[Rfam]
Rfam assigns this 164-nucleotide sequence from Sus scrofa to the family "U1 spliceosomal RNA". It is annotated as a spliceosomal small nuclear RNA.

RNA sequence: AUACUUACCUGGCAGGGGAAACACCAUGAUCAGGAAGGUGGUUUUCCCAGGGCGAGGUUCACCCAUUGCACUGCGGGUGUGCUGACCUCUGCGAUUUCCCCAAAUGUGGGAAACUCGACUGCGUAAUUUGUGGUAGUGGGGGACUGCGUUCGCGCUCUCCUCUG
Numbered sequence: 001a002u003a004c005u006u007a008c009c010u011g012g013c014a015g016g017g018g019a020a021a022c023a024c025c026a027u028g029a030u031c032a033g034g035a036a037g038g039u040g041g042u043u044u045u046c047c048c049a050g051g052g053c054g055a056g057g058u059u060c061a062c063c064c065a066u067u068g069c070a071c072u073g074c075g076g077g078u079g080u081g082c083u084g085a086c087c088u089c090u091g092c093g094a095u096u097u098c099c100c101c102a103a104a105u106g107u108g109g110g111a112a113a114c115u116c117g118a119c120u121g122c123g124u125a126a127u128u129u130g131u132g133g134u135a136g137u138g139g140g141g142g143a144c145u146g147c148g149u150u151c152g153c154g155c156u157c158u159c160c161u162c163u164g
Stems, first nucleotide, its partner, number of pairs: 012122004016048006023042005049090004054086001056083003060079005092117003095113003099109002138163006146155003

The organism belongs to Sus, within Eukaryota.
For this family Rfam cites "The uRNA database" (Zwieb, Nucleic Acids Res, 1997).